[Rfam]
RNA sequence: UGAUGACUGCCGCCUAAUCGCCUCCGGGCGUAUCGGGGACCCAUGCAACACCGGGGUGAAUCCGCGCCAGCGGUAGGGCCACUGUUCCGACCCGAACCCGUCAGCUAACCCGGUCGGCGGCCGACGGAGGGAAC
Numbered sequence: 001u002g003a004u005g006a007c008u009g010c011c012g013c014c015u016a017a018u019c020g021c022c023u024c025c026g027g028g029c030g031u032a033u034c035g036g037g038g039a040c041c042c043a044u045g046c047a048a049c050a051c052c053g054g055g056g057u058g059a060a061u062c063c064g065c066g067c068c069a070g071c072g073g074u075a076g077g078g079c080c081a082c083u084g085u086u087c088c089g090a091c092c093c094g095a096a097c098c099c100g101u102c103a104g105c106u107a108a109c110c111c112g113g114u115c116g117g118c119g120g121c122c123g124a125c126g127g128a129g130g131g132a133a134c
Base pairs, nucleotide, nucleotide: 011119012118013117014116019030020029032114033113034112035111036110037109042053054099055098056097062073063072064071065070076093077092078091
A member of the RNA family "c-di-AMP riboswitch aptamer (ydaO/yuaA leader)" from Virgisporangium aliadipatigenens, 134 nucleotides long. It scores 79 bits against the family's covariance model. This family represents a conserved RNA structure found upstream of the ydaO and yuaA genes in Bacillus subtilis and related genes in other bacteria. The pairing is the family consensus, mapped onto this sequence.